[Rfam]
The family of this 66-nucleotide sequence from Alligator mississippiensis is "Mammalian CPEB3 ribozyme". The match comes from Rfam's covariance-model search (41 bits). Rfam links the family to the GO term RNA nuclease activity. The family has 14 seed sequences and 5,706 matches in Rfam 15.1. The base pairs follow the family's consensus structure, which is taken from published work. NCBI's taxonomy places the organism under Eukaryota, Eumetazoa, Euteleostomi, Sarcopterygii, Alligator.

RNA sequence: UUUAGAUACCAAGGCCAUAGUAGAAGCACGGCCCUAUCAGAUUCCAUUGAAUCUGUGAAUACUGCU
Number, nucleotide and partner (000 for none) at each position: 001u000002u000003u000004a000005g000006a000007u000008a000009c000010c000011a000012a000013g033014g032015c031016c030017a000018u000019a066020g065021u064022a063023g062024a000025a060026g000027c000028a000029c000030g016031g015032c014033c013034c000035u000036a000037u000038c055039a054040g053041a052042u051043u050044c049045c000046a000047u000048u000049g044050a043051a042052u041053c040054u039055g038056u000057g000058a000059a000060u025061a000062c023063u022064g021065c020066u019